[Rfam]
RNA sequence: CCGUCCGUUUGCCGGAAUGGUCAGCUCUCCGCCGCCGCCCGCCGGUUAGGCUGCUGGUGUGCGCGCGCCGCGGGCGCGCGCAUAGCCGACAGCCGUCGCACUCCGGGAGAGAAGCCCAUG
Numbered sequence: 001c002c003g004u005c006c007g008u009u010u011g012c013c014g015g016a017a018u019g020g021u022c023a024g025c026u027c028u029c030c031g032c033c034g035c036c037g038c039c040c041g042c043c044g045g046u047u048a049g050g051c052u053g054c055u056g057g058u059g060u061g062c063g064c065g066c067g068c069c070g071c072g073g074g075c076g077c078g079c080g081c082a083u084a085g086c087c088g089a090c091a092g093c094c095g096u097c098g099c100a101c102u103c104c105g106g107g108a109g110a111g112a113a114g115c116c117c118a119u120g
Stems, first nucleotide, its partner, number of pairs: 060082004065077004085099002088097003

Shown here is a 120-nucleotide RNA from Streptomyces zhaozhouensis, a member of the family "Streptomyces-metH RNA". The source organism's lineage runs through Bacteria, Actinomycetota, Actinomycetes, Streptomycetaceae and Streptomyces. It is annotated as a small RNA. The base pairs follow the family's consensus structure, which is taken from published work.